[Rfam]
RNA sequence: CUCCACAGCUACUGGUCUGGAACUGUUGAUGAUUAUAGCAGUUGCAGGAUUCCCUCUGUGGAAAAUAAACUGUUACACAGCGUUAAGAUCCUUCUCAGAUCCUCUGAAAAGGACUCUAUGUAACAAACAAUG
Numbered sequence: 001c002u003c004c005a006c007a008g009c010u011a012c013u014g015g016u017c018u019g020g021a022a023c024u025g026u027u028g029a030u031g032a033u034u035a036u037a038g039c040a041g042u043u044g045c046a047g048g049a050u051u052c053c054c055u056c057u058g059u060g061g062a063a064a065a066u067a068a069a070c071u072g073u074u075a076c077a078c079a080g081c082g083u084u085a086a087g088a089u090c091c092u093u094c095u096c097a098g099a100u101c102c103u104c105u106g107a108a109a110a111g112g113a114c115u116c117u118a119u120g121u122a123a124c125a126a127a128c129a130a131u132g
Stems, first nucleotide, its partner, number of pairs: 003061004017047003021043005075121003079117001089113005095107002
About this RNA: A member of the RNA family "Small nucleolar RNA SNORA41" from Chaetura pelagica, 132 nucleotides long. ACA41 is a member of the H/ACA class of snoRNA that guide the sites of modification of uridines to pseudouridines. For this family Rfam cites "RNomics: an experimental approach that identifies 201 candidates for novel, small, non-messenger RNAs in mouse" (Huttenhofer et al., EMBO J, 2001). Rfam 15.1 lists 676 matches to the family in 522 species. It is annotated as an H/ACA-box small nucleolar RNA.